[Rfam]
RNA sequence: ACAAAAAAAGCGCAUAGCACAAGGCUAUACGCGAGUUUUACGCCGGAGCCUGCUUUCGCAGACUCCUUUCAUGGGAGAGGAGAAACCGGACGAAGAGCUUAUGGGGAAACGUAAGUCUUCUCCGCGG
Numbered sequence: 001a002c003a004a005a006a007a008a009a010g011c012g013c014a015u016a017g018c019a020c021a022a023g024g025c026u027a028u029a030c031g032c033g034a035g036u037u038u039u040a041c042g043c044c045g046g047a048g049c050c051u052g053c054u055u056u057c058g059c060a061g062a063c064u065c066c067u068u069u070c071a072u073g074g075g076a077g078a079g080g081a082g083a084a085a086c087c088g089g090a091c092g093a094a095g096a097g098c099u100u101a102u103g104g105g106g107a108a109a110c111g112u113a114a115g116u117c118u119u120c121u122c123c124g125c126g127g
Stems, first nucleotide, its partner, number of pairs: 011031002014028005038075002041073002047064002050061003087124004092120004097116005
Background:
A member of the RNA family "ylbH leader" from Paenibacillus antri, 127 nucleotides long. On this family, see Barrick et al., Proc Natl Acad Sci U S A 2004: "New RNA motifs suggest an expanded scope for riboswitches in bacterial genetic control". Its family is annotated with regulation of gene expression in the Gene Ontology. About the family: This family is a putative regulatory RNA structure that is found upstream of the ylbH gene in B. subtilis and related low GC Gram-positive bacteria. The match comes from Rfam's covariance-model search (72 bits). The pairing is the family consensus, mapped onto this sequence. Rfam classes the family as a cis-regulatory leader. The organism belongs to Paenibacillus, within Bacteria.